Shown here is a 93-nucleotide sequence from Pelodiscus sinensis, a member of the family "Z30 small nucleolar RNA". Pairs were carried over by alignment from the consensus structure, which was predicted with PFOLD.
RNA sequence: GAGCGAUGAUGAGUGAAGCGGACUCUGACCUGGUAUUGCCCAGUUUGUCUGGCUCUGACCAGGGCGUGAUCACAAGAUCUUCUCUCUGAGCCG
Numbered sequence: 001g002a003g004c005g006a007u008g009a010u011g012a013g014u015g016a017a018g019c020g021g022a023c024u025c026u027g028a029c030c031u032g033g034u035a036u037u038g039c040c041c042a043g044u045u046u047g048u049c050u051g052g053c054u055c056u057g058a059c060c061a062g063g064g065c066g067u068g069a070u071c072a073c074a075a076g077a078u079c080u081u082c083u084c085u086c087u088g089a090g091c092c093g
Stems, first nucleotide, its partner, number of pairs: 001092001003091002038053003

The organism belongs to Pelodiscus, within Eukaryota. The literature on the family includes a 2002 paper in Mol Cell Biol by Galardi et al., "Purified box C/D snoRNPs are able to reproduce site-specific 2'-O-methylation of target RNA in vitro". Rfam links the family to the GO terms RNA processing and nucleolus. Rfam classes the family as a C/D-box small nucleolar RNA.